[Rfam]
RNA sequence: CGGGGAUACGCAGGCUCCCCGUUAAAUGGUCAUCCCAUUCAAGCGCUGC
Number, nucleotide and partner (000 for none) at each position: 001c021002g020003g019004g018005g017006a016007u000008a000009c000010g049011c048012a047013g046014g000015c000016u006017c005018c004019c003020c002021g001022u000023u000024a000025a039026a038027u037028g036029g035030u000031c000032a000033u000034c000035c029036c028037a027038u026039u025040c000041a000042a000043g000044c000045g000046c013047u012048g011049c010